[Rfam]
RNA sequence: GUGUUAAUGCUAAUUGUGAUAGGGGUUGUGCAUACUGACAAACUCCUACAUAUUAGCAUUAUUAU
Dot-bracket structure: ....((((((((((.....((((.(((.............))).))))...))))))))))....
This 65-nucleotide sequence from Aquarana catesbeiana belongs to the Rfam family "mir-155 microRNA precursor family". The source organism's lineage runs through Eukaryota, Opisthokonta, Craniata, Neobatrachia and Aquarana. Its family is annotated with miRNA-mediated post-transcriptional gene silencing and RISC complex in the Gene Ontology.